The family of this 137-nucleotide RNA from Neodiprion lecontei is "U11 spliceosomal RNA". Rfam 15.1 lists 2,595 matches to the family in 1,202 species.
[Rfam]
RNA sequence: AAAAAGGGUGCUCGUCACUUUAAUGGCGCAUCGGAUCGAUAUUGAUCCGGUGGGGUAUGGCUAUCAAGGCAUACCCAGUACAUAAUUUUUGAGAACGUGAGGCUGUUGGCUGCCACAUUUUUAGCACCGGCGCCUCC
Numbered sequence: 001a002a003a004a005a006g007g008g009u010g011c012u013c014g015u016c017a018c019u020u021u022a023a024u025g026g027c028g029c030a031u032c033g034g035a036u037c038g039a040u041a042u043u044g045a046u047c048c049g050g051u052g053g054g055g056u057a058u059g060g061c062u063a064u065c066a067a068g069g070c071a072u073a074c075c076c077a078g079u080a081c082a083u084a085a086u087u088u089u090u091g092a093g094a095a096c097g098u099g100a101g102g103c104u105g106u107u108g109g110c111u112g113c114c115a116c117a118u119u120u121u122u123a124g125c126a127c128c129g130g131c132g133c134c135u136c137c
Stems, first nucleotide, its partner, number of pairs: 008081005013028005029052010053076007100135004105131005111126003
Description: It is annotated as a spliceosomal small nuclear RNA. The family's consensus secondary structure is taken from published work. Lineage of the source: Eukaryota > Opisthokonta > Pancrustacea > Pterygota > Neodiprion.